[Rfam]
RNA sequence: GCAGGUGGAAUGUCCCAGCUUCGGGGAACACGUACGAUCGCGACUCGUUUUCGAACGAGGGUGCGAGACAUUUGGAUGUUCACAACCAAACCCCGGGGAAGGUCUGAGACACAGCAGUCAACCAAAUGCCCGUGAGGGCGCAUCCUCGUCAGAACUGGCGUUGCUGCCAGCAAACCGGCGAUGGACGUGGGUCACCAGAAACCUUUAGCAUCCAACGCGUUUCGAGACGCUUGGUACUCUAUAUUGCUAGUUGGAACGGGCUCACUUGCUGCGGGAGACCUAAGUGCAAUGCAGGGAGUGUCGACUCUUUUGGGGUCGGCAAAACUCAAUUCAGACUACUCUCCAUAUCUGC
Numbered sequence: 001g002c003a004g005g006u007g008g009a010a011u012g013u014c015c016c017a018g019c020u021u022c023g024g025g026g027a028a029c030a031c032g033u034a035c036g037a038u039c040g041c042g043a044c045u046c047g048u049u050u051u052c053g054a055a056c057g058a059g060g061g062u063g064c065g066a067g068a069c070a071u072u073u074g075g076a077u078g079u080u081c082a083c084a085a086c087c088a089a090a091c092c093c094c095g096g097g098g099a100a101g102g103u104c105u106g107a108g109a110c111a112c113a114g115c116a117g118u119c120a121a122c123c124a125a126a127u128g129c130c131c132g133u134g135a136g137g138g139c140g141c142a143u144c145c146u147c148g149u150c151a152g153a154a155c156u157g158g159c160g161u162u163g164c165u166g167c168c169a170g171c172a173a174a175c176c177g178g179c180g181a182u183g184g185a186c187g188u189g190g191g192u193c194a195c196c197a198g199a200a201a202c203c204u205u206u207a208g209c210a211u212c213c214a215a216c217g218c219g220u221u222u223c224g225a226g227a228c229g230c231u232u233g234g235u236a237c238u239c240u241a242u243a244u245u246g247c248u249a250g251u252u253g254g255a256a257c258g259g260g261c262u263c264a265c266u267u268g269c270u271g272c273g274g275g276a277g278a279c280c281u282a283a284g285u286g287c288a289a290u291g292c293a294g295g296g297a298g299u300g301u302c303g304a305c306u307c308u309u310u311u312g313g314g315g316u317c318g319g320c321a322a323a324a325c326u327c328a329a330u331u332c333a334g335a336c337u338a339c340u341c342u343c344c345a346u347a348u349c350u351g352c
Stems, first nucleotide, its partner, number of pairs: 001352004007344003013296003022095005104334005113270004127140005147160005187265007205250006299321009
RNA: Nuclear RNase P
Organism: Capsaspora owczarzaki